[Rfam]
RNA sequence: GAUAUUCAAAGGAUAAGUAUAAGACCUUAAUUUGAGAAUC
Numbered sequence: 001g002a003u004a005u006u007c008a009a010a011g012g013a014u015a016a017g018u019a020u021a022a023g024a025c026c027u028u029a030a031u032u033u034g035a036g037a038a039u040c
Stems, first nucleotide, its partner, number of pairs: 001040003005036001006034001008033001009028004
S4-Flavobacteria ribosomal protein leader: a 40-nucleotide sequence. On this family, see Eckert and Weinberg, BMC Microbiol 2020: "Discovery of 20 novel ribosomal leader candidates in bacteria and archaea". Rfam's curators put it in the seed alignment.